The family of this 340-nucleotide part of an RNA from Sphingobacterium allocomposti is "Bacterial large subunit ribosomal RNA". The base pairs follow the family's consensus structure, which is taken from published work. Lineage of the source: Bacteria > Bacteroidota > Sphingobacteriales > Sphingobacteriaceae > Sphingobacterium. It scores 2709 bits against the family's covariance model.
[Rfam]
RNA sequence: CGAGUGAAUCAUGGCUAAGGAACUCGGCAAAAUGGCCCUGUAACUUCGGGAGAAGGGGCGCUUCCUCCGCAAGGAGAAGCCGCAGUGAAAAGGCCCAGGCGACUGUUUAGCAAAAACAUAUGGCUUUGCGAAAUCGAAAGAUGAUGUAUAAGGCCUGACACCUGCCCGGUGCUGGAAGGUUAAGAGGGGAUGUCAACCUUCGGGUGAAGCAUUGAAUCGAAGCCCCAGUAAACGGCGGCCGUAACUAUAACGGUCCUAAGGUAGCGAAAUUCCUUGUCGGGUAAGUUCCGACCUGCACGAAUGGUGUAACGAUCUGGGCGCUGUCUCAGCCAUGAGCUCG
Number, nucleotide and partner (000 for none) at each position: 001c340002g339003a338004g337005u000006g000007a000008a000009u335010c334011a333012u332013g331014g330015c329016u328017a000018a326019g325020g324021a000022a000023c000024u000025c000026g000027g000028c000029a000030a000031a000032a000033u000034g000035g059036c058037c057038c056039u055040g000041u000042a000043a000044c049045u000046u000047c000048g000049g044050g000051a000052g000053a000054a000055g039056g038057g037058g036059c035060g080061c079062u078063u077064c076065c000066u000067c074068c073069g000070c000071a000072a000073g068074g067075a000076g064077a063078a062079g061080c060081c085082g000083c000084a000085g081086u000087g000088a000089a000090a000091a000092g000093g319094c318095c317096c316097a315098g314099g313100c311101g310102a000103c000104u118105g117106u116107u000108u000109a000110g000111c000112a000113a000114a000115a000116a106117c105118a104119u000120a000121u000122g155123g154124c153125u152126u151127u150128g149129c146130g000131a000132a000133a142134u141135c140136g000137a000138a000139a000140g135141a134142u133143g000144a000145u000146g129147u000148a000149u128150a127151a126152g125153g124154c123155c122156u000157g000158a000159c306160a305161c304162c303163u000164g236165c235166c234167c000168g000169g233170u232171g229172c228173u227174g226175g225176a000177a000178g224179g223180u222181u000182a000183a000184g218185a217186g000187g000188g000189g213190a212191u211192g210193u209194c000195a000196a205197c204198c000199u000200u000201c000202g000203g000204g197205u196206g000207a000208a000209g193210c192211a191212u190213u189214g000215a000216a000217u185218c184219g000220a000221a000222g180223c179224c178225c175226c174227a173228g172229u171230a000231a000232a170233c169234g166235g165236c164237g255238g254239c253240c252241g251242u250243a000244a000245c000246u000247a000248u000249a000250a242251c241252g240253g239254u238255c237256c260257u000258a000259a000260g256261g000262u000263a000264g000265c000266g293267a000268a000269a000270u000271u000272c000273c000274u000275u000276g292277u291278c290279g289280g288281g287282u000283a000284a000285g000286u000287u281288c280289c279290g278291a277292c276293c266294u000295g000296c000297a000298c000299g000300a000301a000302u000303g162304g161305u160306g159307u000308a000309a000310c101311g100312a000313u099314c098315u097316g096317g095318g094319c093320g000321c000322u000323g000324u020325c019326u018327c000328a016329g015330c014331c013332a012333u011334g010335a009336g000337c004338u003339c002340g001